This 118-nucleotide RNA sequence belongs to the Rfam family "c-di-GMP-II-GAG riboswitch aptamer".
RNA sequence: GUCGCCGAAGGAAGCGUUGAUCCGGACAGGCCACACCGGCGCCCCGCGAGGGGCGUACGGAGAGACACGGUCGCCUAGCCCGUCCGGGGAGUGAGUGGCGAGACCGACCUGCCCCAGU
Numbered sequence: 001g002u003c004g005c006c007g008a009a010g011g012a013a014g015c016g017u018u019g020a021u022c023c024g025g026a027c028a029g030g031c032c033a034c035a036c037c038g039g040c041g042c043c044c045c046g047c048g049a050g051g052g053g054c055g056u057a058c059g060g061a062g063a064g065a066c067a068c069g070g071u072c073g074c075c076u077a078g079c080c081c082g083u084c085c086g087g088g089g090a091g092u093g094a095g096u097g098g099c100g101a102g103a104c105c106g107a108c109c110u111g112c113c114c115c116a117g118u
Base pairs, nucleotide, nucleotide: 001118002117004115007112009110010109011108014092015091022087023086024085025084026083027082029080069105070104071101072100073099074098075097
Pairs were carried over by alignment from the consensus structure, which is taken from published work. For this family Rfam cites "Bioinformatic analysis of riboswitch structures uncovers variant classes with altered ligand specificity" (Weinberg et al., Proc Natl Acad Sci U S A, 2017).